RNA sequence: GUUCGUCUUCAGGGCAGGGUGUAAUUCCCGACCGGCAGUAAAGUCUGCGAAACCGUUUGGUUUGAAUCGGUGCAAUUCCGAUACCGACAGUAUAGUCUGGAUGGAAGAAGAUGGCU
Numbered sequence: 001g002u003u004c005g006u007c008u009u010c011a012g013g014g015c016a017g018g019g020u021g022u023a024a025u026u027c028c029c030g031a032c033c034g035g036c037a038g039u040a041a042a043g044u045c046u047g048c049g050a051a052a053c054c055g056u057u058u059g060g061u062u063u064g065a066a067u068c069g070g071u072g073c074a075a076u077u078c079c080g081a082u083a084c085c086g087a088c089a090g091u092a093u094a095g096u097c098u099g100g101a102u103g104g105a106a107g108a109a110g111a112u113g114g115c116u
Stems, first nucleotide, its partner, number of pairs: 003114008017029003031096002033086002035048004043084002051062003066082005088099003

This 116-nucleotide RNA from Pilibacter termitis belongs to the Rfam family "FMN riboswitch aptamer (RFN element)".